Overview:
Shown here is a 266-nucleotide sequence from Coccomyxa sp. Obi, a member of the family "RNase MRP". Rfam classes the family as a ribozyme. The family has 66 seed sequences and 3,510 matches in Rfam 15.1.
[Rfam]
RNA sequence: GCGCAGCACGAAGGGCCACCUCGGUGGAAACCAUGGCAGAGCCCCCCGCAAGGGGGGAGAGCACUGCAUGAGUGUCUGAUGAGACCACCGGGCGAAAGUCCCCGGGCAACGAGGCAGAGAGUGCCACCCCGAAAGGGAAGGACCCCCCGGCGCACGGUCCCCCUCCCGGGGGAUUACGGGCCCGGGGGCAGCUUGCCGUAGCAACAGUUAUGUGGCCAGUGGGGAUACAACCCAUCAACUCAACGGGGCUUACUCUCGUGCUGACG
Number, nucleotide and partner (000 for none) at each position: 001g000002c266003g265004c263005a262006g261007c260008a259009c258010g257011a256012a000013g000014g217015g216016c215017c214018a213019c212020c000021u091022c090023g089024g088025u087026g086027g085028a000029a000030a000031c000032c000033a000034u000035g000036g000037c078038a077039g076040a075041g000042c000043c072044c000045c000046c000047c000048g000049c000050a000051a000052g000053g000054g000055g000056g000057g000058a000059g000060a000061g000062c000063a000064c000065u000066g000067c000068a000069u000070g000071a000072g043073u000074g000075u040076c039077u038078g037079a000080u000081g000082a000083g000084a000085c027086c026087a025088c024089c023090g022091g021092g000093c000094g000095a000096a251097a250098g249099u000100c248101c247102c246103c245104g000105g000106g000107c000108a000109a000110c000111g000112a000113g125114g124115c123116a122117g000118a000119g000120a000121g000122u116123g115124c114125c113126a000127c000128c137129c136130c135131g000132a000133a000134a000135g130136g129137g128138a000139a000140g189141g000142a000143c000144c000145c000146c185147c184148c000149g182150g181151c180152g000153c000154a000155c178156g177157g000158u000159c172160c171161c170162c169163c000164u000165c000166c000167c000168g000169g162170g161171g160172g159173a000174u000175u000176a000177c156178g155179g000180g151181c150182c149183c000184g147185g146186g000187g000188g000189c140190a000191g000192c000193u000194u000195g000196c000197c000198g000199u000200a000201g000202c000203a000204a000205c000206a000207g000208u000209u000210a000211u000212g019213u018214g017215g016216c015217c014218a000219g235220u234221g233222g232223g231224g000225a000226u000227a000228c000229a000230a000231c223232c222233c221234a220235u219236c000237a000238a000239c000240u000241c000242a000243a000244c000245g103246g102247g101248g100249c098250u097251u096252a000253c000254u000255c000256u011257c010258g009259u008260g007261c006262u005263g004264a000265c003266g002